[Rfam]
RNA: S4-Flavobacteria ribosomal protein leader
RNA sequence: GAUCUUUGAAGGACUAGGUCUUAAUUCAAGAUC
Numbered sequence: 001g002a003u004c005u006u007u008g009a010a011g012g013a014c015u016a017g018g019u020c021u022u023a024a025u026u027c028a029a030g031a032u033c
Base pairs, nucleotide, nucleotide: 001033002032003031004030005029006028008027009022010021011020012019